This 73-nucleotide RNA sequence from Tricholaema leucomelas belongs to the Rfam family "mir-129 microRNA precursor family". Rfam links the family to the GO terms long-term synaptic potentiation, RISC complex and gene silencing by miRNA. Lineage of the source: Eukaryota > Bilateria > Dinosauria > Piciformes > Tricholaema lacrymosa. A search with the family's covariance model found it, with a score of 77 bits.
RNA sequence: UCGGAGCUUUUUGCGGUCUGGGCUUGCUGUCCCCCCCCUGCUCUCAGGAAGCCCUUACCCCAAAAAGGAUCUG
Numbered sequence: 001u002c003g004g005a006g007c008u009u010u011u012u013g014c015g016g017u018c019u020g021g022g023c024u025u026g027c028u029g030u031c032c033c034c035c036c037c038c039u040g041c042u043c044u045c046a047g048g049a050a051g052c053c054c055u056u057a058c059c060c061c062a063a064a065a066a067g068g069a070u071c072u073g
Base pairs, nucleotide, nucleotide: 007067008066009065010064011063012062013061015059016058017057020054021053022052023051025049027047028046